[Rfam]
RNA sequence: GUGAGGAGCUCACACGUCUUGCAGAGUGAUGUCAUAAAAUGAUGCAAUGCGUCUGAGCUCCUUAC
Numbered sequence: 001g002u003g004a005g006g007a008g009c010u011c012a013c014a015c016g017u018c019u020u021g022c023a024g025a026g027u028g029a030u031g032u033c034a035u036a037a038a039a040u041g042a043u044g045c046a047a048u049g050c051g052u053c054u055g056a057g058c059u060c061c062u063u064a065c
Stems, first nucleotide, its partner, number of pairs: 001065003005061008014052004019047005

Shown here is a 65-nucleotide sequence from Ornithorhynchus anatinus, a member of the family "mir-1421 microRNA precursor family". NCBI's taxonomy places the organism under Eukaryota, Metazoa, Teleostomi, Mammalia, Ornithorhynchus.